[Rfam]
RNA: Plastid-psbN 5UTR RNA
RNA sequence: AAAUACUCCCAUAAGUAAGGUUGUUCCCCAACCAGGAGCAACUUUACCAUAUUCGGAGUUC
Numbered sequence: 001a002a003a004u005a006c007u008c009c010c011a012u013a014a015g016u017a018a019g020g021u022u023g024u025u026c027c028c029c030a031a032c033c034a035g036g037a038g039c040a041a042c043u044u045u046a047c048c049a050u051a052u053u054c055g056g057a058g059u060u061c
Stems, first nucleotide, its partner, number of pairs: 017045011